Shown here is a 94-nucleotide sequence from Branchiostoma belcheri, a member of the family "mir-2060 microRNA precursor family". The match comes from Rfam's covariance-model search (81 bits). Its family is annotated with miRNA-mediated post-transcriptional gene silencing and RISC complex in the Gene Ontology.
RNA sequence: GUGUGUGUGUGUGUGUGUGGUGUUCAGCACCAAUGACAGGAGUGUUUAUCUGUGUGUGGAUGGUGUCCAGCACCAGGGACAGGUAUGUUUGUGU
Numbered sequence: 001g002u003g004u005g006u007g008u009g010u011g012u013g014u015g016u017g018u019g020g021u022g023u024u025c026a027g028c029a030c031c032a033a034u035g036a037c038a039g040g041a042g043u044g045u046u047u048a049u050c051u052g053u054g055u056g057u058g059g060a061u062g063g064u065g066u067c068c069a070g071c072a073c074c075a076g077g078g079a080c081a082g083g084u085a086u087g088u089u090u091g092u093g094u
Base pairs, nucleotide, nucleotide: 004085005084006083008081009080010079018075019074020073021072022071023070024069027066028065029064030063031062032061036053037052038051039050040049042047
Dot-bracket structure: ...(((.(((.......(((((((..((((((...(((((.(....).))))).......))))))..)))))))...))).))).........